A member of the RNA family "U1 spliceosomal RNA" from Aphanomyces stellatus, 160 nucleotides long. The family's RNA type in Rfam is spliceosomal small nuclear RNA. The family's consensus secondary structure is taken from published work. It scores 84 bits against the family's covariance model. The family is grouped with related families in Rfam's "U1 clan".

[Rfam]
RNA sequence: AUACUUACCUGACUGGUGCUCGACCGUGAUCAAAAAGGCGGUUGACAUGAGCCGGAGCAGGCCUUCACGCACUCCGGUGCUGUAAUGGCUCAGGAAUGCCUUCGGGUAUCUCCACAGUGCAAUUUUUGCCAGCGGGGGUGUGCGCGUGCGCCAUCCCCAA
Numbered sequence: 001a002u003a004c005u006u007a008c009c010u011g012a013c014u015g016g017u018g019c020u021c022g023a024c025c026g027u028g029a030u031c032a033a034a035a036a037g038g039c040g041g042u043u044g045a046c047a048u049g050a051g052c053c054g055g056a057g058c059a060g061g062c063c064u065u066c067a068c069g070c071a072c073u074c075c076g077g078u079g080c081u082g083u084a085a086u087g088g089c090u091c092a093g094g095a096a097u098g099c100c101u102u103c104g105g106g107u108a109u110c111u112c113c114a115c116a117g118u119g120c121a122a123u124u125u126u127u128g129c130c131a132g133c134g135g136g137g138g139u140g141u142g143c144g145c146g147u148g149c150g151c152c153a154u155c156c157c158c159a160a
Stems, first nucleotide, its partner, number of pairs: 012118004016048003020044001023042005049091003053088001057083001059081002062077002093113003096109003099105002135158004142151003